[Rfam]
RNA: Histone 3' UTR stem-loop
RNA sequence: CCAACGGCUCUUUUAAGGGCCACCCAUAUUUUCUCUAAACUGCUG
Numbered sequence: 001c002c003a004a005c006g007g008c009u010c011u012u013u014u015a016a017g018g019g020c021c022a023c024c025c026a027u028a029u030u031u032u033c034u035c036u037a038a039a040c041u042g043c044u045g
Stems, first nucleotide, its partner, number of pairs: 006021006